[Rfam]
RNA sequence: CAGCAGCCAUAACUCCGAGCUUUAUUCACUAAGUUGCAGCCUUUCGGGGAUGACAAUAGGUGAAUGAAGCCAGUGACAGAGUAGUCACCAGGGUCGACAAAGAAAUGCAUCGGCCUCCCGUAUUUGGAAAGGUGUUCCGUGGCGAAUCAA
Numbered sequence: 001c002a003g004c005a006g007c008c009a010u011a012a013c014u015c016c017g018a019g020c021u022u023u024a025u026u027c028a029c030u031a032a033g034u035u036g037c038a039g040c041c042u043u044u045c046g047g048g049g050a051u052g053a054c055a056a057u058a059g060g061u062g063a064a065u066g067a068a069g070c071c072a073g074u075g076a077c078a079g080a081g082u083a084g085u086c087a088c089c090a091g092g093g094u095c096g097a098c099a100a101a102g103a104a105a106u107g108c109a110u111c112g113g114c115c116u117c118c119c120g121u122a123u124u125u126g127g128a129a130a131g132g133u134g135u136u137c138c139g140u141g142g143c144g145a146a147u148c149a150a
Base pairs, nucleotide, nucleotide: 011136012135013134015132016131019070020069021068022067023066024065025064026063027062028061029060033057034056035055036054073088074087075086076085077084091116092115093114094113095112096111097110101106117127118126